[Rfam]
RNA sequence: CCGUUCGGCGUCCCAGGCGGGGCGCUGCGGGACCGCCCUCGUGUCUGUGGCGGUGGGAUCCCGUGGCCGUGUUUUCCUGGUGGCCCGGCC
Numbered sequence: 001c002c003g004u005u006c007g008g009c010g011u012c013c014c015a016g017g018c019g020g021g022g023c024g025c026u027g028c029g030g031g032a033c034c035g036c037c038c039u040c041g042u043g044u045c046u047g048u049g050g051c052g053g054u055g056g057g058a059u060c061c062c063g064u065g066g067c068c069g070u071g072u073u074u075u076c077c078u079g080g081u082g083g084c085c086c087g088g089c090c
Base pairs, nucleotide, nucleotide: 005088006087007086008085011083012082013080014079015078016077017076019073020072022070023069024067025066026065027064028063029062030061031060032059033053034052035051036050037049038047
The family of this 90-nucleotide RNA from Macaca mulatta is "mir-663 microRNA precursor family". Taxonomically the source falls in Macaca (Eukaryota, Metazoa, Deuterostomia, Boreoeutheria). The sequence is in the family's curated seed alignment.